The record is a 353-nucleotide RNA sequence from Shimia sp. SK013, which matches "Alphaproteobacteria transfer-messenger RNA" in Rfam.
A reference for the family is Laslett et al. (2002), "BRUCE: a program for the detection of transfer-messenger RNA genes in nucleotide sequences", Nucleic Acids Res.
Bacterial tmRNA, also known as 10Sa RNA or SsrA, is named for its dual tRNA and mRNA-like properties. Its role is to liberate the mRNA from a stalled ribosome. To accomplish this part of the tmRNA is used as a reading frame that ends in a translation stop signal.
Taxonomically the source falls in Shimia (Bacteria, Pseudomonadati, Pseudomonadota, Alphaproteobacteria).

[Rfam]
RNA sequence: ACCCUUGCGACUCGCGCGCGGCACGCUUAUCUAAAGGAUGUCUCUUCGGGGACUAUGGACAUAAACGCGCUUGCAAUAAACGGAUCGGACCCGGGGGCGGUACCCGGCGUCUCCACCAAACAUCCUUCAUUUGGGGAUCAUGGGGACGAAAUAGGAUCGACGGACGUCUAAAGAAGUUAGCUUUGUUUCGGCUGUCUGCCACCGUUAUCGGCGAAACUUGUACAAUUGCAAAUGACAAUCGUGCUCCGGCAAUGGCAGUUGCAGCGUAAGCUGUAAAUGUCGCCGAAACUAACUCCUUGGGUUUAGCGACCUAAGGCGGGGUUCGCAGGCACCUGGCAACAGAAGCCUGCACU
Number, nucleotide and partner (000 for none) at each position: 001a000002c000003c000004c000005u000006u000007g000008c000009g000010a000011c000012u000013c000014g000015c000016g000017c000018g000019c000020g000021g000022c000023a000024c000025g000026c000027u000028u000029a000030u000031c000032u000033a000034a000035a000036g000037g000038a000039u000040g053041u052042c051043u050044c049045u000046u000047c000048g000049g044050g043051g042052a041053c040054u000055a000056u000057g188058g187059a186060c185061a184062u000063a000064a000065a000066c000067g181068c180069g177070c176071u175072u174073g000074c000075a000076a000077u000078a000079a000080a000081c166082g165083g000084a000085u163086c162087g161088g000089a000090c000091c107092c106093g105094g104095g103096g000097g000098c000099g000100g000101u000102a000103c095104c094105c093106g092107g091108c148109g147110u146111c145112u144113c143114c142115a000116c000117c000118a000119a000120a000121c000122a000123u000124c000125c000126u000127u000128c000129a000130u000131u000132u000133g000134g000135g000136g000137a000138u000139c000140a000141u000142g114143g113144g112145g111146a110147c109148g108149a000150a000151a000152u000153a000154g000155g000156a000157u000158c000159g000160a000161c087162g086163g085164a000165c082166g081167u000168c000169u000170a000171a000172a000173g000174a072175a071176g070177u069178u000179a000180g068181c067182u000183u000184u061185g060186u059187u058188u057189c204190g203191g202192c000193u000194g000195u214196c213197u000198g212199c211200c210201a000202c191203c190204g189205u000206u000207a000208u000209c000210g200211g199212c198213g196214a195215a000216a000217c000218u000219u000220g000221u000222a000223c000224a000225a000226u000227u000228g000229c000230a000231a000232a000233u000234g000235a000236c000237a000238a000239u000240c000241g000242u000243g000244c000245u000246c000247c000248g000249g000250c000251a000252a000253u000254g000255g000256c000257a000258g000259u000260u000261g000262c000263a000264g000265c000266g000267u000268a000269a000270g000271c000272u000273g000274u000275a000276a000277a000278u000279g000280u000281c000282g000283c000284c000285g000286a000287a000288a000289c000290u000291a000292a000293c000294u000295c000296c000297u000298u000299g000300g000301g000302u000303u000304u000305a000306g000307c000308g000309a000310c000311c000312u000313a000314a000315g000316g000317c000318g000319g334320g333321g332322u331323u000324c000325g350326c349327a348328g347329g346330c345331a322332c321333c320334u319335g000336g000337c000338a000339a000340c000341a000342g000343a000344a000345g330346c329347c328348u327349g326350c325351a000352c000353u000